[Rfam]
RNA sequence: AUGGCAGGAUCCGAAAAGCCCAAACAGAGUAGGAA
Numbered sequence: 001a002u003g004g005c006a007g008g009a010u011c012c013g014a015a016a017a018g019c020c021c022a023a024a025c026a027g028a029g030u031a032g033g034a035a
Stems, first nucleotide, its partner, number of pairs: 003020003010034003
Shown here is a 35-nucleotide sequence, a member of the family "DUF805b RNA". The sequence is in the family's curated seed alignment. The base pairs follow the family's consensus structure, which is taken from published work.